[Rfam]
RNA sequence: AUCUCCAGGGCGCGUUCUCCUCCCAUUAGCGCCCUCGAGUGUUCCCCUCUGGAGGUUUAGCCCUAGCGGGCACUUCCAACAAACUUGGCCGGGUCUUCUUGGAUCCGGCUUUUUU
Numbered sequence: 001a002u003c004u005c006c007a008g009g010g011c012g013c014g015u016u017c018u019c020c021u022c023c024c025a026u027u028a029g030c031g032c033c034c035u036c037g038a039g040u041g042u043u044c045c046c047c048u049c050u051g052g053a054g055g056u057u058u059a060g061c062c063c064u065a066g067c068g069g070g071c072a073c074u075u076c077c078a079a080c081a082a083a084c085u086u087g088g089c090c091g092g093g094u095c096u097u098c099u100u101g102g103a104u105c106c107g108g109c110u111u112u113u114u115u
Base pairs, nucleotide, nucleotide: 001040003039004038005037007035008034009033010032011031012030013029050078051077052076053075054074055073056072087110088109089108090107091106092105094103095102096101